[Rfam]
Record summary:
Shown here is a 60-nucleotide sequence from Sciurus carolinensis, a member of the family "U7 small nuclear RNA". The family's consensus secondary structure was predicted with PFOLD. A search with the family's covariance model found it, with a score of 38 bits.
Nucleotides: 060
Stems, first nucleotide, its partner, number of pairs: 032057011
Number, partner (000 for none) and nucleotide at each position: 001000a002000a003000g004000u005000a006000c007000u008000g009000c010000a011000g012000c013000u014000c015000u016000u017000a018000g019000a020000u021000u022000u023000u024000a025000u026000u027000u028000a029000g030000c031000a032057g033056g034055c035054u036053u037052u038051c039050u040049g041048g042047u043000u044000g045000u046000c047042a048041c049040c050039a051038g052037a053036a054035a055034g056033u057032c058000u059000u060000c